[Rfam]
RNA sequence: AAAAAGGGCGUGCCAUGAUGCCUUCUCUAGGGAGGGUUGAUAUGGCGGGAGUCUUGGUUUACUCCUGCGGUAUGGCAAUCAAGACAUAUCGAGCGCAUAAUUUUUUGAUUUGGCGGCUCGCAACAGGCUUCGCUCAAGCCGGGGCCGCCUU
Numbered sequence: 001a002a003a004a005a006g007g008g009c010g011u012g013c014c015a016u017g018a019u020g021c022c023u024u025c026u027c028u029a030g031g032g033a034g035g036g037u038u039g040a041u042a043u044g045g046c047g048g049g050a051g052u053c054u055u056g057g058u059u060u061a062c063u064c065c066u067g068c069g070g071u072a073u074g075g076c077a078a079u080c081a082a083g084a085c086a087u088a089u090c091g092a093g094c095g096c097a098u099a100a101u102u103u104u105u106u107g108a109u110u111u112g113g114c115g116g117c118u119c120g121c122a123a124c125a126g127g128c129u130u131c132g133c134u135c136a137a138g139c140c141g142g143g144g145c146c147g148c149c150u151u
Base pairs, nucleotide, nucleotide: 008096009095010094011093013045014044015043016042017041046067047066048065049064050063051062052061068091069090070089071088072087073086074085115149116148117147120145121144124141126140127139128138129137
Rfam assigns this 151-nucleotide sequence from Parasitella parasitica to the family "U11 spliceosomal RNA". The family's consensus secondary structure is taken from published work. It scores 68 bits against the family's covariance model.